[Rfam]
RNA sequence: GGUAGUAGCAAAUAUUCAAAUGAGAACUUUGAAGACUGAAGUGGAGAAAGGUUCCAUGUGAACAGCAAUUGGACAUGGGUUAGUCGAUCCUAAGAGAUGGGGCAAUCCUGUGUCAAUGGCGCAAUGCGCGCCGUGCAUCGAAAGGGAAUCGGGUCAAUAUUCCCGAACCGGGACAUGGCAGCGGACGGUGACGUGGCUGAAUCCUGAGACGCCGGCGGGGGCCCCUGGAAGAGUUCUCUUUUCUUUUUAACAGCCCGCCCACCCUGGAAUCGGAUUACCCGGAGAUAGGGUCCAGCGGCUGGUAAAGCACCGCACGUCUUGCGGUGUCAGGUGCGCCCUCGGCGGCCCUUGAAAAUCAGGAGGAGCGAUUACUGAUCAUGCCCGGUCGUACUCAUAACCGCAUCAGGUCUCCAAGGUGAACAGCCUCUAGUCGA
Numbered sequence: 001g002g003u004a005g006u007a008g009c010a011a012a013u014a015u016u017c018a019a020a021u022g023a024g025a026a027c028u029u030u031g032a033a034g035a036c037u038g039a040a041g042u043g044g045a046g047a048a049a050g051g052u053u054c055c056a057u058g059u060g061a062a063c064a065g066c067a068a069u070u071g072g073a074c075a076u077g078g079g080u081u082a083g084u085c086g087a088u089c090c091u092a093a094g095a096g097a098u099g100g101g102g103c104a105a106u107c108c109u110g111u112g113u114c115a116a117u118g119g120c121g122c123a124a125u126g127c128g129c130g131c132c133g134u135g136c137a138u139c140g141a142a143a144g145g146g147a148a149u150c151g152g153g154u155c156a157a158u159a160u161u162c163c164c165g166a167a168c169c170g171g172g173a174c175a176u177g178g179c180a181g182c183g184g185a186c187g188g189u190g191a192c193g194u195g196g197c198u199g200a201a202u203c204c205u206g207a208g209a210c211g212c213c214g215g216c217g218g219g220g221g222c223c224c225c226u227g228g229a230a231g232a233g234u235u236c237u238c239u240u241u242u243c244u245u246u247u248u249a250a251c252a253g254c255c256c257g258c259c260c261a262c263c264c265u266g267g268a269a270u271c272g273g274a275u276u277a278c279c280c281g282g283a284g285a286u287a288g289g290g291u292c293c294a295g296c297g298g299c300u301g302g303u304a305a306a307g308c309a310c311c312g313c314a315c316g317u318c319u320u321g322c323g324g325u326g327u328c329a330g331g332u333g334c335g336c337c338c339u340c341g342g343c344g345g346c347c348c349u350u351g352a353a354a355a356u357c358a359g360g361a362g363g364a365g366c367g368a369u370u371a372c373u374g375a376u377c378a379u380g381c382c383c384g385g386u387c388g389u390a391c392u393c394a395u396a397a398c399c400g401c402a403u404c405a406g407g408u409c410u411c412c413a414a415g416g417u418g419a420a421c422a423g424c425c426u427c428u429a430g431u432c433g434a
Base pairs, nucleotide, nucleotide: 015033016032017031018030019029020028034432035431036430037429043412044411045410046409049392050391054078055077056076057075058074059073063071064070085388086387087386089145090144094139095138097111098110100109101108102107119131120130121129149166150165151164152163153162169384170383171382172381174380175379176378177377178376179374180373185194186193187192202361203360204359205358206357207356211346212345213344214343216341217340218339219338220337221336222335224331225330226329227247228246229245230244231243232242251301252300253299254298255297261291262290263289264288265287266286270282271281272280273279308326309325310324311323312322313321314320398407399406414426415425416424417423

Shown here is a 434-nucleotide part of an RNA from Physcomitrium patens, a member of the family "Eukaryotic large subunit ribosomal RNA". Clan: LSU clan. The source organism's lineage runs through Eukaryota, Streptophyta, Funariidae, Funariales and Physcomitrium. The literature on the family includes a 2001 paper in Science by Yusupov et al., "Crystal structure of the ribosome at 5.5 A resolution".